Shown here is a 75-nucleotide sequence from Mycolicibacterium holsaticum, a member of the family "putative aminoglycoside riboswitch / attI site". Rfam describes the family as follows. Conserved RNA structure found upstream of the bacterial aminoglycosides antibiotic-resistant genes: aminoglycoside acetyl transferase (AAC) and aminoglycoside adenyl transferase (AAD). It has putative short open reading frame (ORF) that encode leader peptide upstream of the resistance gene. 75 nucleotide long sequence from the first ribosome binding site (SD1) up to the coding sequence was shown to have the regulatory role, and it was considered the minima functional RNA. Aminoglycosides bind to specific regions of AAC/AAD 5' leader and induce change in the RNA structure. It is annotated as a cis-regulatory element. It scores 75 bits against the family's covariance model. Rfam links the family to the GO terms aminoglycoside antibiotic metabolic process and regulation of gene expression.
RNA sequence: GGAGCAGCAACGAUGUUACGCAGCAGGGCAGUCGCCCUAAAACAAAGUUAGACAUGAUGAGCAACUCUAUACACA
Numbered sequence: 001g002g003a004g005c006a007g008c009a010a011c012g013a014u015g016u017u018a019c020g021c022a023g024c025a026g027g028g029c030a031g032u033c034g035c036c037c038u039a040a041a042a043c044a045a046a047g048u049u050a051g052a053c054a055u056g057a058u059g060a061g062c063a064a065c066u067c068u069a070u071a072c073a074c075a
Base pairs, nucleotide, nucleotide: 004072006017008015009014023053026037027036028035029034038050039049040048060066061065